The family of this 97-nucleotide RNA sequence from Rodentibacter trehalosifermentans is "Aggregatibacter sRNA 22". The match comes from Rfam's covariance-model search (99 bits). Rfam classes the family as a small RNA. On this family, see Oogai et al., DNA Res 2017: "Small RNA repertoires and their intraspecies variation in Aggregatibacter actinomycetemcomitans".

RNA sequence: GUGCGGUGACAAAAAACAAAGUUUUUUGAACGUUGGCUUUGCCAACGGCUCCAAAGGAGUGAAUAAAUCACUUUAGUGAUUUAUGAAUAAUUUUUCC
Numbered sequence: 001g002u003g004c005g006g007u008g009a010c011a012a013a014a015a016a017c018a019a020a021g022u023u024u025u026u027u028g029a030a031c032g033u034u035g036g037c038u039u040u041g042c043c044a045a046c047g048g049c050u051c052c053a054a055a056g057g058a059g060u061g062a063a064u065a066a067a068u069c070a071c072u073u074u075a076g077u078g079a080u081u082u083a084u085g086a087a088u089a090a091u092u093u094u095u096c097c
Base pairs, nucleotide, nucleotide: 010028011027012026013025014024015023016022017021031047032046033045034044035043036042037041048060049059050058051057052056063084064083065082066081067080068079069078070077071076090095
The family has 7 seed sequences and 101 matches in Rfam 15.1.